Shown here is a 104-nucleotide RNA from Paenibacillus albicereus, a member of the family "Glycine riboswitch aptamer". Its Rfam clan is "Glycine riboswitch clan". NCBI's taxonomy places the organism under Bacteria, Bacillati, Bacillota, Caryophanales, Paenibacillus.

[Rfam]
RNA sequence: AUGAACGCAGCGGGAGAGAUCGCCGGCAGUGCAAGGCGGCGCCGAAGGAGUAACCUUGACCUAGCGCGAGGGAAUCUCUCAGGCAAAAGGACCUCUGCGGGACG
Dot-bracket structure: .....(((((.((......((((............)))).(((((..(((...(((((........)))))....))))).))).......)).))))).....